[Rfam]
RNA sequence: UCUGGCAAUGAUGACCCACUUGCCCUCACUGAGAGCAAAGCUCGAUAAUGAGAACCUUUGUUAUGGACUCAAGUUCUGAGUCAGA
Numbered sequence: 001u002c003u004g005g006c007a008a009u010g011a012u013g014a015c016c017c018a019c020u021u022g023c024c025c026u027c028a029c030u031g032a033g034a035g036c037a038a039a040g041c042u043c044g045a046u047a048a049u050g051a052g053a054a055c056c057u058u059u060g061u062u063a064u065g066g067a068c069u070c071a072a073g074u075u076c077u078g079a080g081u082c083a084g085a
Base pairs, nucleotide, nucleotide: 001085002084003083004082005081006080
RNA: Small nucleolar RNA SNORD103/SNORD85